[Rfam]
RNA sequence: CGACGGAGUGUGUGUAAGGACUCUGUCCGGGGCGGAUGCUCUGGUGUACUUCCCCGACAUCAGAUCCCCGCCCCGGGCAGGGCCCUAUAUGCACCCCGGACACCC
Number, nucleotide and partner (000 for none) at each position: 001c000002g000003a000004c000005g000006g000007a000008g000009u000010g092011u091012g090013u089014g088015u087016a086017a000018g085019g084020a000021c082022u081023c080024u079025g078026u077027c076028c075029g074030g073031g072032g071033c070034g069035g068036a000037u000038g066039c000040u064041c063042u062043g061044g060045u059046g058047u057048a000049c000050u000051u000052c000053c000054c000055c000056g000057a047058c046059a045060u044061c043062a042063g041064a040065u000066c038067c000068c035069c034070g033071c032072c031073c030074c029075g028076g027077g026078c025079a024080g023081g022082g021083c000084c019085c018086u016087a015088u014089a013090u012091g011092c010093a000094c000095c000096c000097c000098g000099g000100a000101c000102a000103c000104c000105c000

Shown here is a 105-nucleotide RNA sequence from Corynebacterium doosanense, a member of the family "mraW RNA". The organism belongs to Corynebacterium doosanense, within Bacteria. The family has 45 seed sequences and 851 matches in Rfam 15.1.